Background: The record is a 77-nucleotide RNA sequence from Capitella teleta, which matches "mir-190 microRNA precursor family" in Rfam. The family's consensus secondary structure was predicted with RNAalifold. On this family, see Kloosterman et al., Nucleic Acids Res 2006: "Cloning and expression of new microRNAs from zebrafish". Rfam links the family to the GO terms miRNA-mediated post-transcriptional gene silencing and RISC complex. The sequence is in the family's curated seed alignment.
[Rfam]
RNA sequence: CUCUCGGCAAGAUAUGUUUGAUAUAUUUGGUGGUGCCUCUUACAGUCCACCAGAUAUCAAACAUGUCAUGUGGAGGG
Numbered sequence: 001c002u003c004u005c006g007g008c009a010a011g012a013u014a015u016g017u018u019u020g021a022u023a024u025a026u027u028u029g030g031u032g033g034u035g036c037c038u039c040u041u042a043c044a045g046u047c048c049a050c051c052a053g054a055u056a057u058c059a060a061a062c063a064u065g066u067c068a069u070g071u072g073g074a075g076g077g
Stems, first nucleotide, its partner, number of pairs: 005073001007071003011067014029051005